[Rfam]
RNA: Small nucleolar RNA Z122
RNA sequence: UGUGGGAGAUGAUGAUAUAAAUGAAAAAAAUCAGAUGCCACUAGUUUUUCGGUGGCUUUGCUGAGCAAAAUCAUUGUUAUUGCACGUCAGUCUGAUCCCCAA
Numbered sequence: 001u002g003u004g005g006g007a008g009a010u011g012a013u014g015a016u017a018u019a020a021a022u023g024a025a026a027a028a029a030a031u032c033a034g035a036u037g038c039c040a041c042u043a044g045u046u047u048u049u050c051g052g053u054g055g056c057u058u059u060g061c062u063g064a065g066c067a068a069a070a071u072c073a074u075u076g077u078u079a080u081u082g083c084a085c086g087u088c089a090g091u092c093u094g095a096u097c098c099c100c101a102a
Base pairs, nucleotide, nucleotide: 001102004099005098006097007096